Overview: A member of the RNA family "FMN riboswitch aptamer (RFN element)" from Candidatus Protofrankia datiscae, 129 nucleotides long. The family's consensus secondary structure is taken from published work. About the family: The RFN element is a highly conserved domain that is found frequently in the 5'-untranslated regions of prokaryotic mRNAs that encode for flavin mononucleotide (FMN) biosynthesis and transport proteins.
RNA sequence: ACGCGCGCUCCGGGGUCGGUGAAAAUCCGAACCGGCGGUGACAGUCCGCGACCCGUCCGCAGCCAGCGGACGGCUGAUCCGGUGGAAUUCCGGGACCGACGGUGAAAGUCCGGAUGGGAGGACGCGCGC
Number, nucleotide and partner (000 for none) at each position: 001a000002c000003g127004c126005g125006c124007g123008c000009u121010c120011c000012g000013g000014g000015g000016u000017c029018g028019g027020u000021g000022a000023a000024a000025a000026u000027c019028c018029g017030a000031a109032c108033c098034g097035g049036c048037g047038g046039u000040g000041a000042c000043a000044g096045u095046c038047c037048g036049c035050g000051a000052c000053c073054c072055g000056u000057c000058c000059g000060c000061a000062g000063c000064c000065a000066g000067c000068g000069g000070a000071c000072g054073g053074c000075u000076g000077a000078u094079c093080c092081g091082g090083u000084g000085g000086a000087a000088u000089u000090c082091c081092g080093g079094g078095a045096c044097c034098g033099a000100c112101g111102g110103u000104g000105a000106a000107a000108g032109u031110c102111c101112g100113g000114a000115u000116g000117g000118g000119a000120g010121g009122a000123c007124g006125c005126g004127c003128g000129c000